A member of the RNA family "c-di-AMP riboswitch aptamer (ydaO/yuaA leader)" from Paramaledivibacter caminithermalis, 138 nucleotides long.
Nucleotides: 138
Base pairs, nucleotide, nucleotide: 011123012122013121014120019033020032021031022030036117037116038115039114040113045056057103058102059101065079066078067077068076082097083096084095085094
Number, partner (000 for none) and nucleotide at each position: 001000a002000c003000a004000c005000u006000a007000c008000a009000c010000u011123u012122g013121c014120u015000g016000a017000a018000u019033c020032c021031u022030g023000g024000a025000a026000u027000a028000c029000c030022c031021a032020g033019g034000u035000a036117c037116g038115g039114a040113g041000g042000a043000a044000c045056c046000a047000a048000a049000a050000a051000a052000a053000a054000a055000a056045g057103g058102g059101g060000c061000u062000a063000a064000u065079c066078c067077a068076u069000g070000a071000a072000u073000g074000a075000c076068a077067u078066g079065g080000u081000a082097g083096g084095g085094a086000a087000c088000c089000u090000u091000c092000u093000a094085u095084c096083c097082c098000g099000a100000a101059c102058c103057c104000g105000u106000c107000a108000g109000c110000u111000a112000a113040c114039u115038u116037c117036g118000g119000a120014a121013g122012c123011a124000a125000a126000u127000a128000a129000u130000a131000g132000g133000a134000a135000g136000g137000a138000g